[Rfam]
RNA sequence: UGGAGGACUGAGAAGGUAAGGCAGUUUCUCUACCAUGCUGCCUCUUACUGGUUAGAGCCUCCUACAUUAAAUCGCAAAAGCAUCUCACGUGCCUCCUGUGAAUUGGGAGGGACCUUACUGCAUUUGCACACAUCAU
Numbered sequence: 001u002g003g004a005g006g007a008c009u010g011a012g013a014a015g016g017u018a019a020g021g022c023a024g025u026u027u028c029u030c031u032a033c034c035a036u037g038c039u040g041c042c043u044c045u046u047a048c049u050g051g052u053u054a055g056a057g058c059c060u061c062c063u064a065c066a067u068u069a070a071a072u073c074g075c076a077a078a079a080g081c082a083u084c085u086c087a088c089g090u091g092c093c094u095c096c097u098g099u100g101a102a103u104u105g106g107g108a109g110g111g112a113c114c115u116u117a118c119u120g121c122a123u124u125u126g127c128a129c130a131c132a133u134c135a136u
Base pairs, nucleotide, nucleotide: 002062003061004060005059006058015049016048017047018046019043020042021041022040023039024038025037074127075126077124078123080121081120082119089115091113093111095110096109
RNA: Small nucleolar RNA SNORA47
Organism: Ornithorhynchus anatinus